[Rfam]
RNA sequence: CCCUUAUCUUUUAAAAGUUUCAAGUUGGUCCCUUAUCUUUAUUUUCGGUUUUAAGUUGGUCCCUUCCGUCAAUUUUUUAACUAUUUCCGUUAAAUUUGGACACGUGACAAACUAAUUUGGACACGUGGCACACUUGGACAAAUGACACGUGUCCAAAUUUAACGGUAACAGUAAAAAAAUUGAUGGAAUGAACCAAAAACCUAAAAUAAAGAUAAGGGACCAAUUUGAAACUUUUAAAAGAUAAGGGA
Numbered sequence: 001c002c003c004u005u006a007u008c009u010u011u012u013a014a015a016a017g018u019u020u021c022a023a024g025u026u027g028g029u030c031c032c033u034u035a036u037c038u039u040u041a042u043u044u045u046c047g048g049u050u051u052u053a054a055g056u057u058g059g060u061c062c063c064u065u066c067c068g069u070c071a072a073u074u075u076u077u078u079a080a081c082u083a084u085u086u087c088c089g090u091u092a093a094a095u096u097u098g099g100a101c102a103c104g105u106g107a108c109a110a111a112c113u114a115a116u117u118u119g120g121a122c123a124c125g126u127g128g129c130a131c132a133c134u135u136g137g138a139c140a141a142a143u144g145a146c147a148c149g150u151g152u153c154c155a156a157a158u159u160u161a162a163c164g165g166u167a168a169c170a171g172u173a174a175a176a177a178a179a180u181u182g183a184u185g186g187a188a189u190g191a192a193c194c195a196a197a198a199a200c201c202u203a204a205a206a207u208a209a210a211g212a213u214a215a216g217g218g219a220c221c222a223a224u225u226u227g228a229a230a231c232u233u234u235u236a237a238a239a240g241a242u243a244a245g246g247g248a
Stems, first nucleotide, its partner, number of pairs: 002246007023225003027221003031217013045203001047201001